[Rfam]
RNA sequence: GAGCAUUCUCAGGGCGGGGUGAAAUUCCCAACCGGUGGUAAACGCAUCCGCGUAAGCCCACGAGCGGUUAACCUUAAGACAAAUUUAUCUUAGGUUAAUGACAAGCAGAUUUGGUGAAAAUCCAAAGCCGACAGUAUAGUCUGGAUGAAAGAGAAUAAAA
Numbered sequence: 001g002a003g004c005a006u007u008c009u010c011a012g013g014g015c016g017g018g019g020u021g022a023a024a025u026u027c028c029c030a031a032c033c034g035g036u037g038g039u040a041a042a043c044g045c046a047u048c049c050g051c052g053u054a055a056g057c058c059c060a061c062g063a064g065c066g067g068u069u070a071a072c073c074u075u076a077a078g079a080c081a082a083a084u085u086u087a088u089c090u091u092a093g094g095u096u097a098a099u100g101a102c103a104a105g106c107a108g109a110u111u112u113g114g115u116g117a118a119a120a121u122c123c124a125a126a127g128c129c130g131a132c133a134g135u136a137u138a139g140u141c142u143g144g145a146u147g148a149a150a151g152a153g154a155a156u157a158a159a160a
Stems, first nucleotide, its partner, number of pairs: 005156006017029003031140002033130002035061004056128002064106002110126005132143003
The record is a 160-nucleotide sequence from Conservatibacter flavescens, which matches "FMN riboswitch aptamer (RFN element)" in Rfam.
About the family: The RFN element is a highly conserved domain that is found frequently in the 5'-untranslated regions of prokaryotic mRNAs that encode for flavin mononucleotide (FMN) biosynthesis and transport proteins. This element is a metabolite-dependent riboswitch that directly binds FMN in the absence of proteins. In Bacillus subtilis, the riboswitch most likely controls gene expression by causing premature transcription termination within the 5' untranslated region of the ribDEAHT operon and precluding access to the ribosome-binding site of ypaA mRNA.The FMN riboswitch structure, reported in present an FMN-bound six-stem junction, adopts a butterfly-like scaffold, stapled together by opposingly directed but nearly identically folded peripheral domains.